The record is a 92-nucleotide RNA sequence from Prunus persica, which matches "MIR6288 microRNA precursor family" in Rfam. The organism belongs to Prunus, within Eukaryota. Rfam 15.1 lists 293 matches to the family in 9 species.
RNA sequence: UCAAAACUAGCCACUUGUUAUUUUCUAAUUGGUUCUUAGUGUGUAAAAAUUUUAAAAUAACCAAUUAGAAAAUGACAAGUGGCUAAUUUUGA
Numbered sequence: 001u002c003a004a005a006a007c008u009a010g011c012c013a014c015u016u017g018u019u020a021u022u023u024u025c026u027a028a029u030u031g032g033u034u035c036u037u038a039g040u041g042u043g044u045a046a047a048a049a050u051u052u053u054a055a056a057a058u059a060a061c062c063a064a065u066u067a068g069a070a071a072a073u074g075a076c077a078a079g080u081g082g083c084u085a086a087u088u089u090u091g092a
Base pairs, nucleotide, nucleotide: 002091003090004089005088006087008085009084010083011082012081013080014079015078016077017076018075019074020073021072022071023070024069025068026067027066028065029064030063031062032061033060034059036057037056